[Rfam]
RNA sequence: GUUGCAAACUAGCAUCUGGGGCCCACACAACGAGUAUCUGAUUACUCCACAAACCAUUGCCCCGGGAAGGUCUGAGAAUCGGCCGAGCCAGCUGUUUGUUGCGGCUUCAUUUCCCAGCAGGAAACCUGUGUGAUUGCAGGGCGAAAGUACCAGAAAUCCUGCUACCAGGCGUUGCCGUUGCCCACCAGUGACCGCCGCCUGGUUGGCAUUGAAACCUUUCGUGGCCAGCGUUUUUAGUGCGAUGUGCUUGCUACUAAGAAAAGGUUGGUUAUAGAUAUUAGAAAACUAAAUUUAAAAACAAU
Numbered sequence: 001g002u003u004g005c006a007a008a009c010u011a012g013c014a015u016c017u018g019g020g021g022c023c024c025a026c027a028c029a030a031c032g033a034g035u036a037u038c039u040g041a042u043u044a045c046u047c048c049a050c051a052a053a054c055c056a057u058u059g060c061c062c063c064g065g066g067a068a069g070g071u072c073u074g075a076g077a078a079u080c081g082g083c084c085g086a087g088c089c090a091g092c093u094g095u096u097u098g099u100u101g102c103g104g105c106u107u108c109a110u111u112u113c114c115c116a117g118c119a120g121g122a123a124a125c126c127u128g129u130g131u132g133a134u135u136g137c138a139g140g141g142c143g144a145a146a147g148u149a150c151c152a153g154a155a156a157u158c159c160u161g162c163u164a165c166c167a168g169g170c171g172u173u174g175c176c177g178u179u180g181c182c183c184a185c186c187a188g189u190g191a192c193c194g195c196c197g198c199c200u201g202g203u204u205g206g207c208a209u210u211g212a213a214a215c216c217u218u219u220c221g222u223g224g225c226c227a228g229c230g231u232u233u234u235u236a237g238u239g240c241g242a243u244g245u246g247c248u249u250g251c252u253a254c255u256a257a258g259a260a261a262a263g264g265u266u267g268g269u270u271a272u273a274g275a276u277a278u279u280a281g282a283a284a285a286c287u288a289a290a291u292u293u294a295a296a297a298a299c300a301a302u
Base pairs, nucleotide, nucleotide: 001302002301003300004299006293007292010250011249012248016244018063019062020061021060022059032047033046034045035044036043081226082225083224084223110124111123112122113121114120125140126139127138128137129136130135141222142221143220144219145218146217147216160208161207162206251281252280253279255277256276
The family of this 302-nucleotide RNA sequence from Drosophila simulans is "Nuclear RNase P". The organism belongs to Sophophora, within Eukaryota.